RNA sequence: UUAGCUCUCUUUGCCUUUUGGCUUAGAUCAAGUGUAGUAUCUGUUCUUUUCAGUUUAAUCUCUGAAAUUACUCUACGGAGUAAAAUCGUGAUUAAUCUAAUUUUUGUCUCGCGGCGGACGACCCUCUGGGCUUGCCCAUGGUCGACUGCCACUGUGUCCUUGGUAUUACACUGCCUCCAAGCGACGCGAACAAUU
Numbered sequence: 001u002u003a004g005c006u007c008u009c010u011u012u013g014c015c016u017u018u019u020g021g022c023u024u025a026g027a028u029c030a031a032g033u034g035u036a037g038u039a040u041c042u043g044u045u046c047u048u049u050u051c052a053g054u055u056u057a058a059u060c061u062c063u064g065a066a067a068u069u070a071c072u073c074u075a076c077g078g079a080g081u082a083a084a085a086u087c088g089u090g091a092u093u094a095a096u097c098u099a100a101u102u103u104u105u106g107u108c109u110c111g112c113g114g115c116g117g118a119c120g121a122c123c124c125u126c127u128g129g130g131c132u133u134g135c136c137c138a139u140g141g142u143c144g145a146c147u148g149c150c151a152c153u154g155u156g157u158c159c160u161u162g163g164u165a166u167u168a169c170a171c172u173g174c175c176u177c178c179a180a181g182c183g184a185c186g187c188g189a190a191c192a193a194u195u
Base pairs, nucleotide, nucleotide: 008027009026010025013022014021015020048067049066050065051064052063053062068083069082070081071080072079073078113150114149115148116147117146119144120143127138128137129136130135153188154187155186156185157184158183159181160180161179162178163177
Shown here is a 195-nucleotide RNA sequence from Sporothrix schenckii, a member of the family "U2 spliceosomal RNA".
Clan: U2 clan.
NCBI's taxonomy places the organism under Eukaryota, Pezizomycotina, Sordariomycetes, Ophiostomatales, Sporothrix schenckii.
The family's consensus secondary structure is taken from published work.
Rfam's curators write: U2 is a small nuclear RNA (snRNA) component of the spliceosome (involved in pre-mRNA splicing).
The family's RNA type in Rfam is spliceosomal small nuclear RNA.
The match comes from Rfam's covariance-model search (159 bits).